LOOT RNA: a 123-nucleotide RNA sequence.
[Rfam]
RNA sequence: UGCCUAACCCUCAUGGAGUGAUCCGUGAGGUAUGGCACAAAAUCCCAUCCCUGAUACUGAACCCCGUGUUCAGCAACCCAGGGAUGGGUCAUGUCUCGAAAGGGGCGUGGGGCCGAAAGGUCC
Numbered sequence: 001u002g003c004c005u006a007a008c009c010c011u012c013a014u015g016g017a018g019u020g021a022u023c024c025g026u027g028a029g030g031u032a033u034g035g036c037a038c039a040a041a042a043u044c045c046c047a048u049c050c051c052u053g054a055u056a057c058u059g060a061a062c063c064c065c066g067u068g069u070u071c072a073g074c075a076a077c078c079c080a081g082g083g084a085u086g087g088g089u090c091a092u093g094u095c096u097c098g099a100a101a102g103g104g105g106c107g108u109g110g111g112g113c114c115g116a117a118a119g120g121u122c123c
Stems, first nucleotide, its partner, number of pairs: 001037004009030009044088010055075001057073006090109008110123005
Dot-bracket structure: ((((....(((((((((....)))))))))...))))......((((((((((.(.((((((.....)))))).)...)))))))))).((((((((....))))))))(((((....)))))